[Rfam]
RNA: U7 small nuclear RNA
RNA sequence: GAGUAGUAAAGCUCUUUUAGAAUUUGUCUAGCACAUUUUCUAACUGGAAGAUAUGCUA
Dot-bracket structure: .................................((((((((....)))))..)))...
Numbered sequence: 001g002a003g004u005a006g007u008a009a010a011g012c013u014c015u016u017u018u019a020g021a022a023u024u025u026g027u028c029u030a031g032c033a034c035a036u037u038u039u040c041u042a043a044c045u046g047g048a049a050g051a052u053a054u055g056c057u058a
Stems, first nucleotide, its partner, number of pairs: 034055003037050005